Description:
The family of this 159-nucleotide RNA from Natranaerobius trueperi is "Ribosomal protein L20 leader".
RNA sequence: GGAAAGAAGUAGAAGCUACUCGCUUCUCACCUUACAACGUAUAGUUCGUAAGGUUGCCGUGAUAAAAUUCUAUGACUGUGUCUAUUUUUAGACUAUGGUUAAUAGUGUAUAAAUUCGGCUAAAAAGAGCGAGUAUUGAUACUCGCUCUUUUAUUAUGUU
Numbered sequence: 001g002g003a004a005a006g007a008a009g010u011a012g013a014a015g016c017u018a019c020u021c022g023c024u025u026c027u028c029a030c031c032u033u034a035c036a037a038c039g040u041a042u043a044g045u046u047c048g049u050a051a052g053g054u055u056g057c058c059g060u061g062a063u064a065a066a067a068u069u070c071u072a073u074g075a076c077u078g079u080g081u082c083u084a085u086u087u088u089u090a091g092a093c094u095a096u097g098g099u100u101a102a103u104a105g106u107g108u109a110u111a112a113a114u115u116c117g118g119c120u121a122a123a124a125a126g127a128g129c130g131a132g133u134a135u136u137g138a139u140a141c142u143c144g145c146u147c148u149u150u151u152a153u154u155a156u157g158u159u
Base pairs, nucleotide, nucleotide: 011027012026013025014024015023016022029054030053031052034049035048037045038044127146128145129144130143131142132141133140134139
About the family: This family is a putative r-protein leader autoregulatory structure found in B. subtilis and other low-GC Gram-positive bacteria. It is located in the 5' untranslated regions of mRNAs encoding initiation factor 3 followed by ribosomal proteins L35 and L20 (infC-rpmI-rplT).